[Rfam]
RNA: Lysine riboswitch aptamer
RNA sequence: GAGCACGGUAGAGGUCGCGCUUUGCAAGAGUAAUCGAUUUGAUGUGUCGGACACAUACGAUAAUCGAUGAAAGGGUACGGCGCCGAAGGAACGGAUAUACCGAGUAUCCGGGUCCUGGGCAUACAUUUAAGAGGUGUAUGACUGUCAUCCCGCAAGGGAUGGGGAGCUAUCAAGUUU
Numbered sequence: 001g002a003g004c005a006c007g008g009u010a011g012a013g014g015u016c017g018c019g020c021u022u023u024g025c026a027a028g029a030g031u032a033a034u035c036g037a038u039u040u041g042a043u044g045u046g047u048c049g050g051a052c053a054c055a056u057a058c059g060a061u062a063a064u065c066g067a068u069g070a071a072a073g074g075g076u077a078c079g080g081c082g083c084c085g086a087a088g089g090a091a092c093g094g095a096u097a098u099a100c101c102g103a104g105u106a107u108c109c110g111g112g113u114c115c116u117g118g119g120c121a122u123a124c125a126u127u128u129a130a131g132a133g134g135u136g137u138a139u140g141a142c143u144g145u146c147a148u149c150c151c152g153c154a155a156g157g158g159a160u161g162g163g164g165a166g167c168u169a170u171c172a173a174g175u176u177u
Stems, first nucleotide, its partner, number of pairs: 007171005017083005023077003033068007087116004092110007117143002120140008145162007